[Rfam]
RNA sequence: UAUUAGGCUGGUGCAAAAGUAAUUGUGGUUUUUGCCAUUAAAUAUAAUGGCAAAAACCAUAAUUACUUUUGCACCAACUUAAUA
Numbered sequence: 001u002a003u004u005a006g007g008c009u010g011g012u013g014c015a016a017a018a019g020u021a022a023u024u025g026u027g028g029u030u031u032u033u034g035c036c037a038u039u040a041a042a043u044a045u046a047a048u049g050g051c052a053a054a055a056a057c058c059a060u061a062a063u064u065a066c067u068u069u070u071g072c073a074c075c076a077a078c079u080u081a082a083u084a
Stems, first nucleotide, its partner, number of pairs: 001084007009076032